This 190-nucleotide RNA sequence from Mycolicibacterium phlei belongs to the Rfam family "Actinobacteria sRNA Ms_IGR-5". The source organism's lineage runs through Bacteria, Actinomycetes, Mycobacteriales, Mycobacterium and Mycolicibacterium phlei. Pairs were carried over by alignment from the consensus structure.

RNA sequence: ACACAGGGAAGGAGGUGGUCCGAAAAUUGUGUGACUUAUGGACUUGUGAGGUGGCUGCGAGCUAGCAGCGCCAGGGGAAUGAGCUGACGCUCUUCGCGUCUGCGCGCGCUGGCGAAUUCCCCGCAGCCACCCGGCCCCCGAGCCCCUGCGUCUUGUCCGCCCAGGAGUCACGGCUCGGGGGCCGCUCCAC
Numbered sequence: 001a002c003a004c005a006g007g008g009a010a011g012g013a014g015g016u017g018g019u020c021c022g023a024a025a026a027u028u029g030u031g032u033g034a035c036u037u038a039u040g041g042a043c044u045u046g047u048g049a050g051g052u053g054g055c056u057g058c059g060a061g062c063u064a065g066c067a068g069c070g071c072c073a074g075g076g077g078a079a080u081g082a083g084c085u086g087a088c089g090c091u092c093u094u095c096g097c098g099u100c101u102g103c104g105c106g107c108g109c110u111g112g113c114g115a116a117u118u119c120c121c122c123g124c125a126g127c128c129a130c131c132c133g134g135c136c137c138c139c140g141a142g143c144c145c146c147u148g149c150g151u152c153u154u155g156u157c158c159g160c161c162c163a164g165g166a167g168u169c170a171c172g173g174c175u176c177g178g179g180g181g182c183c184g185c186u187c188c189a190c
Stems, first nucleotide, its partner, number of pairs: 015058005061113006068107004073101003132184013145165004150160001